[Rfam]
RNA sequence: UUUGGGAAAUGAUGCCAAGAUUCAAACACAUUAUCAGAGGCUGCCAGCUCUGCUGAUUAUUUUUUUGCACGUCAGUCUGAUCCCAAG
Numbered sequence: 001u002u003u004g005g006g007a008a009a010u011g012a013u014g015c016c017a018a019g020a021u022u023c024a025a026a027c028a029c030a031u032u033a034u035c036a037g038a039g040g041c042u043g044c045c046a047g048c049u050c051u052g053c054u055g056a057u058u059a060u061u062u063u064u065u066u067g068c069a070c071g072u073c074a075g076u077c078u079g080a081u082c083c084c085a086a087g
Base pairs, nucleotide, nucleotide: 001087002086003085004084005083006082007081
RNA: Small nucleolar RNA Z122